[Rfam]
RNA sequence: UUCUUUUGAGUCUGUAGUUGCGGGGGUCGGCUUUUCGGCUCCUCAGUCCAUGGCAGAUGCGGUCGAAAGGAUCCACGUAAGGGGCCCCGUGGGCCCUGAGCAUGGCGUAUCCUAGAGGUAAGUCGCACCGUCUGGUUACCAACUUUUCGCGAAUGGUUCGCGGCAGGCGAGAGGGCCGGUAGCGCAAGCGAAAGCCCCGGUGCGCGAGUGUGGGGUCAAAAACUAGGUCAGUCAAAAGAA
Numbered sequence: 001u002u003c004u005u006u007u008g009a010g011u012c013u014g015u016a017g018u019u020g021c022g023g024g025g026g027u028c029g030g031c032u033u034u035u036c037g038g039c040u041c042c043u044c045a046g047u048c049c050a051u052g053g054c055a056g057a058u059g060c061g062g063u064c065g066a067a068a069g070g071a072u073c074c075a076c077g078u079a080a081g082g083g084g085c086c087c088c089g090u091g092g093g094c095c096c097u098g099a100g101c102a103u104g105g106c107g108u109a110u111c112c113u114a115g116a117g118g119u120a121a122g123u124c125g126c127a128c129c130g131u132c133u134g135g136u137u138a139c140c141a142a143c144u145u146u147u148c149g150c151g152a153a154u155g156g157u158u159c160g161c162g163g164c165a166g167g168c169g170a171g172a173g174g175g176c177c178g179g180u181a182g183c184g185c186a187a188g189c190g191a192a193a194g195c196c197c198c199g200g201u202g203c204g205c206g207a208g209u210g211u212g213g214g215g216u217c218a219a220a221a222a223c224u225a226g227g228u229c230a231g232u233c234a235a236a237a238g239a240a
Stems, first nucleotide, its partner, number of pairs: 001240009012231003015225005050211003053063001056111006072105002080097004085092002103218001124204005129169005173197004182189002
This 240-nucleotide RNA sequence from Parvibacter caecicola belongs to the Rfam family "raiA RNA". Rfam classes the family as a riboswitch.